[Rfam]
RNA sequence: UGACGGGGGCCCGCACAAGCGGUGGAGCAUGUGGUUUAAUUCGAUGGUACGCGAGGAACCUUACCUGGGUUUGACAUACACAGCGAUCAUAUAGAGAUAUGUGAGCGUAGCAAUACGGCUGUGAACAGGUGCUGCAUGGCUGUCGUCAGCUCGUGCCGUGAGGUGUUGGGUUAAGUCCCGCAACGAGCGCAACCCCUACUGCCGGUUACUAACAGGUAGAGCUGAGGACUCAGGCGGAACUGCCUGCGACAAGCAGGAGGAAGGCGGGGACGACGUCAAGUCAUCAUGGCCCUUAUGUCCAGGGCUACACACGUGCUACAAUGGCCGCCACAGAGCGGAGCGAAGCCGAGAGGCGGAGCAGAACGCAGAAAAGCGGUCGUAGUCCGGAUUGAAGUCUGAAACUCGACUUCAUGAAGCUGGAAUCGCUAGUAACCGCACAUCAGCACGGCGCGGUGAAUACGUUCCCGGGCCUUGUACACACCGCCCGUCACACCAUCCGAGCAGGGGGUACCCGAAGCCGGCAGUCCAACCGCAAGGGGGACGCUGUCGAAGGUACGCUUUGUGAGGGGGGUGAAGUCGUAACAAGG
Numbered sequence: 001u002g003a004c005g006g007g008g009g010c011c012c013g014c015a016c017a018a019g020c021g022g023u024g025g026a027g028c029a030u031g032u033g034g035u036u037u038a039a040u041u042c043g044a045u046g047g048u049a050c051g052c053g054a055g056g057a058a059c060c061u062u063a064c065c066u067g068g069g070u071u072u073g074a075c076a077u078a079c080a081c082a083g084c085g086a087u088c089a090u091a092u093a094g095a096g097a098u099a100u101g102u103g104a105g106c107g108u109a110g111c112a113a114u115a116c117g118g119c120u121g122u123g124a125a126c127a128g129g130u131g132c133u134g135c136a137u138g139g140c141u142g143u144c145g146u147c148a149g150c151u152c153g154u155g156c157c158g159u160g161a162g163g164u165g166u167u168g169g170g171u172u173a174a175g176u177c178c179c180g181c182a183a184c185g186a187g188c189g190c191a192a193c194c195c196c197u198a199c200u201g202c203c204g205g206u207u208a209c210u211a212a213c214a215g216g217u218a219g220a221g222c223u224g225a226g227g228a229c230u231c232a233g234g235c236g237g238a239a240c241u242g243c244c245u246g247c248g249a250c251a252a253g254c255a256g257g258a259g260g261a262a263g264g265c266g267g268g269g270a271c272g273a274c275g276u277c278a279a280g281u282c283a284u285c286a287u288g289g290c291c292c293u294u295a296u297g298u299c300c301a302g303g304g305c306u307a308c309a310c311a312c313g314u315g316c317u318a319c320a321a322u323g324g325c326c327g328c329c330a331c332a333g334a335g336c337g338g339a340g341c342g343a344a345g346c347c348g349a350g351a352g353g354c355g356g357a358g359c360a361g362a363a364c365g366c367a368g369a370a371a372a373g374c375g376g377u378c379g380u381a382g383u384c385c386g387g388a389u390u391g392a393a394g395u396c397u398g399a400a401a402c403u404c405g406a407c408u409u410c411a412u413g414a415a416g417c418u419g420g421a422a423u424c425g426c427u428a429g430u431a432a433c434c435g436c437a438c439a440u441c442a443g444c445a446c447g448g449c450g451c452g453g454u455g456a457a458u459a460c461g462u463u464c465c466c467g468g469g470c471c472u473u474g475u476a477c478a479c480a481c482c483g484c485c486c487g488u489c490a491c492a493c494c495a496u497c498c499g500a501g502c503a504g505g506g507g508g509u510a511c512c513c514g515a516a517g518c519c520g521g522c523a524g525u526c527c528a529a530c531c532g533c534a535a536g537g538g539g540g541a542c543g544c545u546g547u548c549g550a551a552g553g554u555a556c557g558c559u560u561u562g563u564g565a566g567g568g569g570g571g572u573g574a575a576g577u578c579g580u581a582a583c584a585a586g587g
Stems, first nucleotide, its partner, number of pairs: 001478002003475003007472007015462002019426005024319001026317008034308002040055004064303007077125001080122005087104007106117004128292002131290004137286002139281003142277001144275002149188006155164003167180004194269004199237005205231001209226002213224003240260002243257005323378006335366003340359002345354003385416001390411007432454005438448001481586001483583001486579002491573004496568003501563006508556005517548001519546004524542004530537002
The family of this 587-nucleotide part of an RNA from Treponema sp. Marseille-Q4132 is "Bacterial small subunit ribosomal RNA". The base pairs follow the family's consensus structure, which is taken from published work. The organism belongs to Treponema, within Bacteria. A reference for the family is Yusupov et al. (2001), "Crystal structure of the ribosome at 5.5 A resolution", Science.